The record is a 349-nucleotide sequence from Shimia aestuarii, which matches "Alphaproteobacteria transfer-messenger RNA" in Rfam.
RNA sequence: CGGCUUGCAACGGAACGGAUCGGGACUUAUAUCUUGGACGUUCCCUCGGGAACUAUGGACAUAAACGCGCUCGUAAUAAGCGGAUCGGACCCGGGGGCGGUACCCGGCGGCUCCACCAAAACCCUUCAUUUGGGGGUCAUGGGGCCGAAACAGGAUCGACGAACGUCUAAAGGGGUUAGCUUUGUCUCGGCUGUCUGCCACCGUUAUCGGCGAAACUUGUACAAUUGCAAAUGACAAUCGUGCUCCGGUUGCAGUUGCUGCGUAAGCAGUAACAAGACCGAAACUUAAGUCCUGAUGCCUAGCAGCGUCAGGCGGGGUUCGCAGGCACCUGGCAACAGAAGCCUGCACU
Numbered sequence: 001c002g003g004c005u006u007g008c009a010a011c012g013g014a015a016c017g018g019a020u021c022g023g024g025a026c027u028u029a030u031a032u033c034u035u036g037g038a039c040g041u042u043c044c045c046u047c048g049g050g051a052a053c054u055a056u057g058g059a060c061a062u063a064a065a066c067g068c069g070c071u072c073g074u075a076a077u078a079a080g081c082g083g084a085u086c087g088g089a090c091c092c093g094g095g096g097g098c099g100g101u102a103c104c105c106g107g108c109g110g111c112u113c114c115a116c117c118a119a120a121a122c123c124c125u126u127c128a129u130u131u132g133g134g135g136g137u138c139a140u141g142g143g144g145c146c147g148a149a150a151c152a153g154g155a156u157c158g159a160c161g162a163a164c165g166u167c168u169a170a171a172g173g174g175g176u177u178a179g180c181u182u183u184g185u186c187u188c189g190g191c192u193g194u195c196u197g198c199c200a201c202c203g204u205u206a207u208c209g210g211c212g213a214a215a216c217u218u219g220u221a222c223a224a225u226u227g228c229a230a231a232u233g234a235c236a237a238u239c240g241u242g243c244u245c246c247g248g249u250u251g252c253a254g255u256u257g258c259u260g261c262g263u264a265a266g267c268a269g270u271a272a273c274a275a276g277a278c279c280g281a282a283a284c285u286u287a288a289g290u291c292c293u294g295a296u297g298c299c300u301a302g303c304a305g306c307g308u309c310a311g312g313c314g315g316g317g318u319u320c321g322c323a324g325g326c327a328c329c330u331g332g333c334a335a336c337a338g339a340a341g342c343c344u345g346c347a348c349u
Stems, first nucleotide, its partner, number of pairs: 040053005057187005067180002069176004081165002085162003091107005108147007188203003194213002197211003315330004321346006
The family's RNA type in Rfam is non-coding RNA gene. The match comes from Rfam's covariance-model search (301 bits). The organism belongs to Shimia, within Bacteria.